A member of the RNA family "U7 small nuclear RNA" from Marmota monax, 61 nucleotides long. It scores 45 bits against the family's covariance model. Animal histone pre-mRNAs are spliced by a different mechanism than nuclear pre-mRNAs and self-splicing introns. This processing involves the U7 snRNP, which contains only one RNA species: U7. The 5' end of U7 RNA is thought to base-pair to a conserved spacer element downstream of the cleavage site in histone pre-mRNA. This family contains a number of annotated U7 pseudogenes.
RNA sequence: GAAUGCUGCAGCUCUUUUAGAAUUUGUCUAGCAGGAUUUCUGGCUAUGGCAGGAGGCUCAC
Numbered sequence: 001g002a003a004u005g006c007u008g009c010a011g012c013u014c015u016u017u018u019a020g021a022a023u024u025u026g027u028c029u030a031g032c033a034g035g036a037u038u039u040c041u042g043g044c045u046a047u048g049g050c051a052g053g054a055g056g057c058u059c060a061c
Stems, first nucleotide, its partner, number of pairs: 034058002037055006044049001